Annotation:
A member of the RNA family "Vault RNA" from Xenopus tropicalis, 100 nucleotides long. The source organism's lineage runs through Eukaryota, Chordata, Dipnotetrapodomorpha, Amphibia and Silurana. For this family Rfam cites "Evolution of Vault RNAs" (Stadler et al., Mol Biol Evol, 2009). It is annotated as a non-coding RNA gene. From the family's description: This family of RNAs are found as part of the enigmatic vault ribonucleoprotein complex. The match comes from Rfam's covariance-model search (75 bits).
RNA sequence: GGGCUGGCCAUAUAGCUCAGCGGUUCCUUCUCAAAACUCUGAUUUAAACAGACCAAUCCUCUCGGGGGUUUGAAACCCGCGGGCGCUAUCCAGCCUUUUU
Number, nucleotide and partner (000 for none) at each position: 001g000002g095003g094004c093005u092006g091007g090008c000009c000010a000011u000012a000013u000014a000015g084016c083017u082018c081019a000020g080021c079022g078023g077024u000025u000026c000027c000028u074029u073030c072031u000032c000033a000034a000035a000036a000037c000038u000039c000040u000041g000042a000043u000044u000045u000046a000047a000048a000049c000050a000051g000052a000053c000054c000055a000056a000057u000058c000059c000060u000061c000062u000063c000064g000065g000066g000067g000068g000069u000070u000071u000072g030073a029074a028075a000076c000077c023078c022079g021080c020081g018082g017083g016084c015085g000086c000087u000088a000089u000090c007091c006092a005093g004094c003095c002096u000097u000098u000099u000100u000